[Rfam]
Description
Rfam assigns this 194-nucleotide sequence from Streptococcus suis to the family "6S / SsrS RNA". Pairs were carried over by alignment from the consensus structure, which is taken from published work. NCBI's taxonomy places the organism under Bacteria, Lactobacillales, Streptococcaceae, Streptococcus, Streptococcus suis. About the family: E. coli 6S RNA was the first non coding RNA to be sequenced, but its function was unknown until recently. It consists of 184 nucleotides that fold into an extended hairpin structure with a large single-stranded internal bulge. The 6S RNA specifically associates with RNA polymerase holoenzyme containing the sigma70 specificity factor. This interaction represses expression from a sigma70-dependent promoter during stationary phase. 6S RNA homologs have recently been identified in most bacterial genomes. Many Gram-positive species have two copies of 6S RNA. In Bacillus subtilis, both copies appear to interact with RNA polymerase holoenzyme containing the housekeeping sigma factor and be expressed during different stages of growth. In many proteobacteria, 6S RNA may be processed from a transcript encoding homologs of the E. coli YgfA protein which is a putative 5-formyltetrahydrofolate cycloligase activity. It is one of the family's seed sequences.
RNA sequence: GAACUGCUGUGGUAUACGAAUUCAUACCUAUGUGUUGACCGACUAUUUUUGUAUUACUAGGGAGACAAAGAUCCUCUAACAGUAUGCAAGCUGGCACACCCAGAAGCAACUAAGUUAGAAACGCGUCACCCACCUGCUUUUAGCGUGCGGGAUCAAUACAAUCCAUGGAUAACCGGUACCAAUACAGCAUUUUU
Numbered sequence: 001g002a003a004c005u006g007c008u009g010u011g012g013u014a015u016a017c018g019a020a021u022u023c024a025u026a027c028c029u030a031u032g033u034g035u036u037g038a039c040c041g042a043c044u045a046u047u048u049u050u051g052u053a054u055u056a057c058u059a060g061g062g063a064g065a066c067a068a069a070g071a072u073c074c075u076c077u078a079a080c081a082g083u084a085u086g087c088a089a090g091c092u093g094g095c096a097c098a099c100c101c102a103g104a105a106g107c108a109a110c111u112a113a114g115u116u117a118g119a120a121a122c123g124c125g126u127c128a129c130c131c132a133c134c135u136g137c138u139u140u141u142a143g144c145g146u147g148c149g150g151g152a153u154c155a156a157u158a159c160a161a162u163c164c165a166u167g168g169a170u171a172a173c174c175g176g177u178a179c180c181a182a183u184a185c186a187g188c189a190u191u192u193u194u
Stems, first nucleotide, its partner, number of pairs: 002192002005189007012179004017175002032159007039151002060131003064127003075119006086107002091103004